[Rfam]
RNA sequence: AAUUGAAAAAGGCAAACUAUUCGAAAGGGUAGGACGCAAAGCCUAGGGACUAAGGUUUUGGAGGAACAAUUCAAAAUGAUGUCAGCCUGGUUACCAAC
Numbered sequence: 001a002a003u004u005g006a007a008a009a010a011g012g013c014a015a016a017c018u019a020u021u022c023g024a025a026a027g028g029g030u031a032g033g034a035c036g037c038a039a040a041g042c043c044u045a046g047g048g049a050c051u052a053a054g055g056u057u058u059u060g061g062a063g064g065a066a067c068a069a070u071u072c073a074a075a076a077u078g079a080u081g082u083c084a085g086c087c088u089g090g091u092u093a094c095c096a097a098c
Stems, first nucleotide, its partner, number of pairs: 012037002017032006040092004045088003048083003055077008
About this RNA: c-di-GMP-I riboswitch aptamer: a 98-nucleotide sequence from Halalkalibacter krulwichiae. GEMM was predicted in a large-scale screen for bacterial structured RNA regulatory elements. The source organism's lineage runs through Bacteria, Bacillati, Caryophanales, Bacillaceae and Halalkalibacter. The match comes from Rfam's covariance-model search (78 bits). Rfam links the family to the GO term cyclic-di-GMP binding.